[Rfam]
RNA sequence: CGUCAUGGACGGCCAUGACGCAGAACAAUAAGCGGCGGGACGACCUGC
Numbered sequence: 001c002g003u004c005a006u007g008g009a010c011g012g013c014c015a016u017g018a019c020g021c022a023g024a025a026c027a028a029u030a031a032g033c034g035g036c037g038g039g040a041c042g043a044c045c046u047g048c
Stems, first nucleotide, its partner, number of pairs: 001020008035048005

Rfam assigns this 48-nucleotide sequence from Brenneria goodwinii to the family "Guanidine-II riboswitch aptamer (mini-ykkC)". It scores 40 bits against the family's covariance model. Taxonomically the source falls in Brenneria (Bacteria, Pseudomonadota, Gammaproteobacteria, Pectobacteriaceae).